Rfam assigns this 209-nucleotide RNA to the family "HNH endonuclease-associated RNA and ORF (HEARO) RNA". A reference for the family is Weinberg et al. (2009), "Exceptional structured noncoding RNAs revealed by bacterial metagenome analysis", Nature. Rfam 15.1 lists 952 matches to the family in 249 species. The match comes from Rfam's covariance-model search (127 bits). The family's RNA type in Rfam is non-coding RNA gene.
RNA sequence: AUUACCUAGUCCAUAUUCGUAAGAAUAUAAUCCGUGAGGAUUUAGGUGAUUAGCCUCAGUGCUUUUCAGCACUCCGUUAAGCUUCUCAUAAAACCUACGGAUAAUGCCCUAGUCCGUAGCACUUUUAUUAUUCUUUAAACAGUUUUAAGGACAAGAAACAGUGAGGAUAGUGUAAAAAGGAAGUUUAACAUUGGCGAGGGGCAAAUAAC
Numbered sequence: 001a002u003u004a005c006c007u008a009g010u011c012c013a014u015a016u017u018c019g020u021a022a023g024a025a026u027a028u029a030a031u032c033c034g035u036g037a038g039g040a041u042u043u044a045g046g047u048g049a050u051u052a053g054c055c056u057c058a059g060u061g062c063u064u065u066u067c068a069g070c071a072c073u074c075c076g077u078u079a080a081g082c083u084u085c086u087c088a089u090a091a092a093a094c095c096u097a098c099g100g101a102u103a104a105u106g107c108c109c110u111a112g113u114c115c116g117u118a119g120c121a122c123u124u125u126u127a128u129u130a131u132u133c134u135u136u137a138a139a140c141a142g143u144u145u146u147a148a149g150g151a152c153a154a155g156a157a158a159c160a161g162u163g164a165g166g167a168u169a170g171u172g173u174a175a176a177a178a179g180g181a182a183g184u185u186u187a188a189c190a191u192u193g194g195c196g197a198g199g200g201g202c203a204a205a206u207a208a209c
Stems, first nucleotide, its partner, number of pairs: 001050008010030001013028002017024002031040003053195003058073005076189011091125002095119008105203006127171009139162002142159005